[Rfam]
RNA: Small nucleolar RNA SNORA55
Organism: Antrostomus carolinensis
RNA sequence: GCAUCUAAAACUUUCCUGCUCUUUGCCAUGUAGUGCUGGACUGGGGAUACCUGAUGCAACAGGAAAGCAAAGGAAAUCCAGACGAGCUCCCUCUCACCACAGUGGGACUUGUCUCUACACCUUUGCAACAUGU
Numbered sequence: 001g002c003a004u005c006u007a008a009a010a011c012u013u014u015c016c017u018g019c020u021c022u023u024u025g026c027c028a029u030g031u032a033g034u035g036c037u038g039g040a041c042u043g044g045g046g047a048u049a050c051c052u053g054a055u056g057c058a059a060c061a062g063g064a065a066a067g068c069a070a071a072g073g074a075a076a077u078c079c080a081g082a083c084g085a086g087c088u089c090c091c092u093c094u095c096a097c098c099a100c101a102g103u104g105g106g107a108c109u110u111g112u113c114u115c116u117a118c119a120c121c122u123u124u125g126c127a128a129c130a131u132g133u
Base pairs, nucleotide, nucleotide: 001057002056003055004054005053013047014046015045016044017043018042021039022038067126068125069124070123071122072121080114081113082112083111084110085109086108094105095104096103